[Rfam]
RNA sequence: AAAUGUAUAUGGAUAGUGUUCAGCACCAAGGACAGGUGUGUUUGCAUGUAUAUGGAUGGUGUUCAGCACCAAGGACAGGUAUGUUUACCU
Numbered sequence: 001a002a003a004u005g006u007a008u009a010u011g012g013a014u015a016g017u018g019u020u021c022a023g024c025a026c027c028a029a030g031g032a033c034a035g036g037u038g039u040g041u042u043u044g045c046a047u048g049u050a051u052a053u054g055g056a057u058g059g060u061g062u063u064c065a066g067c068a069c070c071a072a073g074g075a076c077a078g079g080u081a082u083g084u085u086u087a088c089c090u
Stems, first nucleotide, its partner, number of pairs: 001080001004077003014071001016069005022063007030051001032049003036045003